[Rfam]
RNA sequence: UGGCGCCUGUCAUGGGGCUCCUGGCAUGAAGGGCUCAACGAGGGAGCCAUCCUGAGACAUGCGCAUAAAAGUGAAACUAAGAGUUUUGUGACCAAUGCUAUGUGGGAGCCUGCCACACCACUAGAGUCACGAUAAGUGGACAGCGAUCCUUUCCCCUUUUUUUCCCCCGGCAUGGGUCAGGCAUUAAGUGAUCACAAAUGCUUUGUGUCAGGUUUAAGUAAAGCUUUAAAGACAAGAGGGAUAAAGGCUAAAGAAAAAGAUUUAUUGCAGUACUUUCAAUUUAUUCAUAAGGUUUGCCCUG
Numbered sequence: 001u002g003g004c005g006c007c008u009g010u011c012a013u014g015g016g017g018c019u020c021c022u023g024g025c026a027u028g029a030a031g032g033g034c035u036c037a038a039c040g041a042g043g044g045a046g047c048c049a050u051c052c053u054g055a056g057a058c059a060u061g062c063g064c065a066u067a068a069a070a071g072u073g074a075a076a077c078u079a080a081g082a083g084u085u086u087u088g089u090g091a092c093c094a095a096u097g098c099u100a101u102g103u104g105g106g107a108g109c110c111u112g113c114c115a116c117a118c119c120a121c122u123a124g125a126g127u128c129a130c131g132a133u134a135a136g137u138g139g140a141c142a143g144c145g146a147u148c149c150u151u152u153c154c155c156c157u158u159u160u161u162u163u164c165c166c167c168c169g170g171c172a173u174g175g176g177u178c179a180g181g182c183a184u185u186a187a188g189u190g191a192u193c194a195c196a197a198a199u200g201c202u203u204u205g206u207g208u209c210a211g212g213u214u215u216a217a218g219u220a221a222a223g224c225u226u227u228a229a230a231g232a233c234a235a236g237a238g239g240g241a242u243a244a245a246g247g248c249u250a251a252a253g254a255a256a257a258a259g260a261u262u263u264a265u266u267g268c269a270g271u272a273c274u275u276u277c278a279a280u281u282u283a284u285u286c287a288u289a290a291g292g293u294u295u296g297c298c299c300u301g
Base pairs, nucleotide, nucleotide: 006032007031008030012027013026014025033047034046035045036044083133084132085131090128091127096123097121101117102116103115104114105113137179138178139177185228186227187226188224189223236276237275238274239273241271242270245263246262247261249259286301287300
This 301-nucleotide RNA sequence from Cavia porcellus belongs to the Rfam family "Mason-Pfizer monkey virus packaging signal". Rfam describes the family as follows. This family represents a group of sequences that are related to the Mason-Pfizer monkey virus (MPMV) packaging signal. The packaging signal is located in the 5' UTR and is required for specific RNA encapsidation. By type it is a cis-regulatory element.